Notes
A member of the RNA family "Plastid-ycf3 group II-D1 intron" from Capsicum annuum, 44 nucleotides long. The match comes from Rfam's covariance-model search (58 bits). The organism belongs to Capsicum, within Eukaryota. The base pairs follow the family's consensus structure, which was predicted with LocARNA.
[Rfam]
RNA sequence: AUUUCUUCUAUCGUGUAUCCUUGAUUAAUGCAACCUCAGAUGCU
Numbered sequence: 001a002u003u004u005c006u007u008c009u010a011u012c013g014u015g016u017a018u019c020c021u022u023g024a025u026u027a028a029u030g031c032a033a034c035c036u037c038a039g040a041u042g043c044u
Stems, first nucleotide, its partner, number of pairs: 010025004032044001034042001